The record is a 93-nucleotide sequence from Gopherus evgoodei, which matches "mir-16 microRNA precursor family" in Rfam. On this family, see Calin et al., Proc Natl Acad Sci U S A 2002: "Frequent deletions and down-regulation of micro- RNA genes miR15 and miR16 at 13q14 in chronic lymphocytic leukemia". Its Rfam clan is "mir-15 clan". The match comes from Rfam's covariance-model search (40 bits). Rfam links the family to the GO terms RISC complex and miRNA-mediated post-transcriptional gene silencing.
Nucleotides: 093
Base pairs, nucleotide, nucleotide: 001093002092003091005089006088007087010086011083012082013081014080015079016078017077018076020073022072023071024070025069026068027067028066029065030064031063032062033061034060035059036058037057038056039055
Number, partner (000 for none) and nucleotide at each position: 001093g002092g003091c004000a005089g006088g007087u008000u009000a010086u011083a012082g013081a014080c015079u016078a017077a018076c019000a020073g021000a022072a023071g024070u025069a026068u027067u028066g029065g030064a031063g032062c033061a034060u035059a036058a037057g038056c039055u040000u041000u042000c043000a044000u045000c046000a047000c048000u049000u050000a051000u052000g053000a054000a055039a056038g057037c058036u059035u060034a061033u062032g063031c064030u065029c066028c067027a068026a069025u070024a071023c072022u073020u074000c075000u076018g077017u078016u079015a080014g081013u082012c083011u084000a085000u086010a087007a088006c089005c090000u091003g092002c093001c